[Rfam]
RNA sequence: UUAUACACUGAGUGGCCAGAUUAUUAUGAUCUCUGAACCCAUAAUAAUCUGGCCACUCAGUGUUAU
Numbered sequence: 001u002u003a004u005a006c007a008c009u010g011a012g013u014g015g016c017c018a019g020a021u022u023a024u025u026a027u028g029a030u031c032u033c034u035g036a037a038c039c040c041a042u043a044a045u046a047a048u049c050u051g052g053c054c055a056c057u058c059a060g061u062g063u064u065a066u
Base pairs, nucleotide, nucleotide: 005063006062007061008060009059010058011057012056013055014054015053016052017051019049020048021047022046023045024044025043026042027041028040